[Rfam]
RNA sequence: AAAGCAGGGAUAGUGUGUAUCGGUGUUGUGCUAUGAUUUACGCAUUCUUCCGAAAGUAUUCCCAUGCGAUAUUAAUCUGAGAGAAUGGGCAGUUGUGUUUCAUUUUCCAUGUUGAAAAUCACAACAAUCAUUUUCCCUAUAUCA
Dot-bracket structure: ...(((((((....((((.(...................).))))..............)))).)))...........(.((((((((...((((..........................))))..)))))))).).......
Numbered sequence: 001a002a003a004g005c006a007g008g009g010a011u012a013g014u015g016u017g018u019a020u021c022g023g024u025g026u027u028g029u030g031c032u033a034u035g036a037u038u039u040a041c042g043c044a045u046u047c048u049u050c051c052g053a054a055a056g057u058a059u060u061c062c063c064a065u066g067c068g069a070u071a072u073u074a075a076u077c078u079g080a081g082a083g084a085a086u087g088g089g090c091a092g093u094u095g096u097g098u099u100u101c102a103u104u105u106u107c108c109a110u111g112u113u114g115a116a117a118a119u120c121a122c123a124a125c126a127a128u129c130a131u132u133u134u135c136c137c138u139a140u141a142u143c144a
Stems, first nucleotide, its partner, number of pairs: 004067003007063004015045004020040001079137001081135008092125004